Background: A member of the RNA family "Small Cajal body specific RNA 11" from Molossus molossus, 132 nucleotides long. Rfam links the family to the GO terms Cajal body, RNA processing and nucleolus. It is annotated as a small Cajal body RNA. The family has 24 seed sequences and 853 matches in Rfam 15.1.

[Rfam]
RNA sequence: AAAUCCUACCUUCUCUGCUCCCCUGUGCUCAGUUAUAACAGGGGAGUCUGGCAGGACAUUCAACUGUCUCCCUUCAGUUUAGGAGGGCCGUUCUGAGUAUAGGGCUGGCUCUUAAAGGCAUGAGAGGACAAU
Numbered sequence: 001a002a003a004u005c006c007u008a009c010c011u012u013c014u015c016u017g018c019u020c021c022c023c024u025g026u027g028c029u030c031a032g033u034u035a036u037a038a039c040a041g042g043g044g045a046g047u048c049u050g051g052c053a054g055g056a057c058a059u060u061c062a063a064c065u066g067u068c069u070c071c072c073u074u075c076a077g078u079u080u081a082g083g084a085g086g087g088c089c090g091u092u093c094u095g096a097g098u099a100u101a102g103g104g105c106u107g108g109c110u111c112u113u114a115a116a117g118g119c120a121u122g123a124g125a126g127g128a129c130a131a132u
Stems, first nucleotide, its partner, number of pairs: 004051002017047003021043006071127003074123002077119004083113007090105006
Description: scaRNAs are a specific class of small nuclear RNAs which localise to the Cajal bodies and guide the modification of RNA polymerase II transcribed spliceosomal RNAs U1, U2, U4, U5 and U12. ACA57 belongs to the H/ACA box class of guide RNAs as it has the predicted hairpin-hinge-hairpin-tail structure, conserved H/ACA-box motifs and is found associated with GAR1. ACA57 is predicted to guide the pseudouridylation of the U5 spliceosomal RNA at position U43. Taxonomically the source falls in Molossus (Eukaryota, Bilateria, Deuterostomia, Theria).